The record is a 365-nucleotide RNA from Loigolactobacillus bifermentans, which matches "Bacterial RNase P class B" in Rfam. Rfam's curators write: Ribonuclease P (RNase P) is a ubiquitous endoribonuclease, found in archaea, bacteria and eukarya as well as chloroplasts and mitochondria. Its best characterised activity is the generation of mature 5'-ends of tRNAs by cleaving the 5'-leader elements of precursor-tRNAs. Cellular RNase Ps are ribonucleoproteins. RNA from bacterial RNase Ps retains its catalytic activity in the absence of the protein subunit, i.e. it is a ribozyme. By type it is a ribozyme.

RNA sequence: AGUUUCGGGUAAUCGCGGUUAACUUUUGUUAGCUGAGGAAAGUCCAUGCCCGCACAGACUGCGAUGUCUGUAGUGUUCGUGCUUAGCCCAAUAAGCUAAGGUACCGGUGACGGUAACGGCGAUGUAAGGACCUAAGGGGUAACCUAUGGUGUGAUGCAUCUGAAAGUGCCACAGUGACGAUCUUGUUUGGAAACAAGCAAGUUGGAACGGGUAAACCCCGCGAGCGAGUAACCCAAACUUUUGGUAGGGGCGUCCCACGUAAGGAAUUGAACGACGCGUGAGAGCAGUUUCGGCUGCAGAUAGAUGAUUACCCUCAUUAGUAUUGUUCCUGAGAGUAUUAAUGAGACAAAACAUGGCUUACAGAG
Numbered sequence: 001a002g003u004u005u006c007g008g009g010u011a012a013u014c015g016c017g018g019u020u021a022a023c024u025u026u027u028g029u030u031a032g033c034u035g036a037g038g039a040a041a042g043u044c045c046a047u048g049c050c051c052g053c054a055c056a057g058a059c060u061g062c063g064a065u066g067u068c069u070g071u072a073g074u075g076u077u078c079g080u081g082c083u084u085a086g087c088c089c090a091a092u093a094a095g096c097u098a099a100g101g102u103a104c105c106g107g108u109g110a111c112g113g114u115a116a117c118g119g120c121g122a123u124g125u126a127a128g129g130a131c132c133u134a135a136g137g138g139g140u141a142a143c144c145u146a147u148g149g150u151g152u153g154a155u156g157c158a159u160c161u162g163a164a165a166g167u168g169c170c171a172c173a174g175u176g177a178c179g180a181u182c183u184u185g186u187u188u189g190g191a192a193a194c195a196a197g198c199a200a201g202u203u204g205g206a207a208c209g210g211g212u213a214a215a216c217c218c219c220g221c222g223a224g225c226g227a228g229u230a231a232c233c234c235a236a237a238c239u240u241u242u243g244g245u246a247g248g249g250g251c252g253u254c255c256c257a258c259g260u261a262a263g264g265a266a267u268u269g270a271a272c273g274a275c276g277c278g279u280g281a282g283a284g285c286a287g288u289u290u291c292g293g294c295u296g297c298a299g300a301u302a303g304a305u306g307a308u309u310a311c312c313c314u315c316a317u318u319a320g321u322a323u324u325g326u327u328c329c330u331g332a333g334a335g336u337a338u339u340a341a342u343g344a345g346a347c348a349a350a351a352c353a354u355g356g357c358u359u360a361c362a363g364a365g
Stems, first nucleotide, its partner, number of pairs: 004365003007361001008312007016035006040359003044356005049228001051226003054071006077223005082100006101117001102115005118218002121160004130150003136145003166216002168212003182201008232249003253283002256280004284297005314344011